Record summary: The family of this 88-nucleotide RNA sequence from Planotetraspora silvatica is "ZMP/ZTP riboswitch aptamer (pfl RNA motif)". NCBI's taxonomy places the organism under Bacteria, Bacillati, Actinomycetota, Streptosporangiaceae, Planotetraspora.

RNA sequence: GAUCCGGGUCGUGACUGGCGCUGAGGUGGAGCACCACCGGGGAGCGGCCCGGCGACCUCCGUCGAUGCCGUGCGCCUGGGCGAAUCAC
Numbered sequence: 001g002a003u004c005c006g007g008g009u010c011g012u013g014a015c016u017g018g019c020g021c022u023g024a025g026g027u028g029g030a031g032c033a034c035c036a037c038c039g040g041g042g043a044g045c046g047g048c049c050c051g052g053c054g055a056c057c058u059c060c061g062u063c064g065a066u067g068c069c070g071u072g073c074g075c076c077u078g079g080g081c082g083a084a085u086c087a088c
Stems, first nucleotide, its partner, number of pairs: 004052009015041002017076005026037004066082004